[Rfam]
RNA sequence: GUAGUCGGAUUCACAUCAAUCUAUAUGUGUUGAGGUGGAUCGGAGUGGAACUUGAACUAAAUUCCACUUCAAUCCACACCAACACAUAUAGAUUGAAGUGAAUCCGACA
Numbered sequence: 001g002u003a004g005u006c007g008g009a010u011u012c013a014c015a016u017c018a019a020u021c022u023a024u025a026u027g028u029g030u031u032g033a034g035g036u037g038g039a040u041c042g043g044a045g046u047g048g049a050a051c052u053u054g055a056a057c058u059a060a061a062u063u064c065c066a067c068u069u070c071a072a073u074c075c076a077c078a079c080c081a082a083c084a085c086a087u088a089u090a091g092a093u094u095g096a097a098g099u100g101a102a103u104c105c106g107a108c109a
Base pairs, nucleotide, nucleotide: 004108005107006106007105008104009103010102011101012100013099014098016096017095018094019093020092021091022090023089024088025087026086027085028084029083030082031081032080035077036076037075038074039073040072042070043069045067046066047065